[Rfam]
RNA sequence: CUUUGGGGUGACGGGUGGCGCAAUGGGAUCAGGUGCCUCCAAGGGCAUCCCAUCUGAUCCCACAACCUCACCCAUCACCCCAAAG
Numbered sequence: 001c002u003u004u005g006g007g008g009u010g011a012c013g014g015g016u017g018g019c020g021c022a023a024u025g026g027g028a029u030c031a032g033g034u035g036c037c038u039c040c041a042a043g044g045g046c047a048u049c050c051c052a053u054c055u056g057a058u059c060c061c062a063c064a065a066c067c068u069c070a071c072c073c074a075u076c077a078c079c080c081c082a083a084a085g
Stems, first nucleotide, its partner, number of pairs: 002084010013073006020066001024062011035046004

The record is an 85-nucleotide sequence from Chlorocebus sabaeus, which matches "mir-3151 microRNA precursor family" in Rfam. The base pairs follow the family's consensus structure, which was predicted with RNAalifold. Lineage of the source: Eukaryota > Metazoa > Euteleostomi > Simiiformes > Chlorocebus. Gene Ontology terms of the family: RISC complex and miRNA-mediated post-transcriptional gene silencing. It scores 93 bits against the family's covariance model.